[Rfam]
RNA: BsrG
Organism: Bacillus sp. OxB-1
RNA sequence: GGUAAUAGAAUAGGUGACUCAAGGGUGGCCGGCUCACUCCCCGUAAGAAAGGGGGUGGUGCCAUGUCAGUAUAUGAAGCAUUGAUGCUUAUGUUUACAUUUGGAGCAUUGAUCGUAUUGUUGCUGUCGUUUAACCAUAAAAAAUAACCCAUCCUUGAGUUAGGCGCUCGUAAGGGUGGGUUAUCUCUUCCCGUUACAGCCGAUCCCCUGAAGGGAACCUGCUAUUACAUCGGCCGUUUCAAUGUUGACGCAUUGGACG
Numbered sequence: 001g002g003u004a005a006u007a008g009a010a011u012a013g014g015u016g017a018c019u020c021a022a023g024g025g026u027g028g029c030c031g032g033c034u035c036a037c038u039c040c041c042c043g044u045a046a047g048a049a050a051g052g053g054g055g056u057g058g059u060g061c062c063a064u065g066u067c068a069g070u071a072u073a074u075g076a077a078g079c080a081u082u083g084a085u086g087c088u089u090a091u092g093u094u095u096a097c098a099u100u101u102g103g104a105g106c107a108u109u110g111a112u113c114g115u116a117u118u119g120u121u122g123c124u125g126u127c128g129u130u131u132a133a134c135c136a137u138a139a140a141a142a143a144u145a146a147c148c149c150a151u152c153c154u155u156g157a158g159u160u161a162g163g164c165g166c167u168c169g170u171a172a173g174g175g176u177g178g179g180u181u182a183u184c185u186c187u188u189c190c191c192g193u194u195a196c197a198g199c200c201g202a203u204c205c206c207c208u209g210a211a212g213g214g215a216a217c218c219u220g221c222u223a224u225u226a227c228a229u230c231g232g233c234c235g236u237u238u239c240a241a242u243g244u245u246g247a248c249g250c251a252u253u254g255g256a257c258g
Base pairs, nucleotide, nucleotide: 002227003226004225006223007222008221010219011202013200014199015198018158019157020156021155022154023153024152025151027148028147034058035057036056038055039054040053041052042051065127067125068124069123070122071121078093079092080091103118104117169186203215204214205213206212234258235257236256238255239254240253241252242251243250244249